This 73-nucleotide sequence from Lottia gigantea belongs to the Rfam family "mir-252 microRNA precursor family". The organism belongs to Lottia, within Eukaryota. The family's consensus secondary structure was predicted with RNAalifold.

[Rfam]
RNA sequence: UGGUAACUAUAAGUAGUGGUGCCGCAGGUAUGAUAUUGAUGGCUACCUGCUUCAUCACUAUUUACUGUUAAUC
Numbered sequence: 001u002g003g004u005a006a007c008u009a010u011a012a013g014u015a016g017u018g019g020u021g022c023c024g025c026a027g028g029u030a031u032g033a034u035a036u037u038g039a040u041g042g043c044u045a046c047c048u049g050c051u052u053c054a055u056c057a058c059u060a061u062u063u064a065c066u067g068u069u070a071a072u073c
Stems, first nucleotide, its partner, number of pairs: 002072001004070004010064010024050007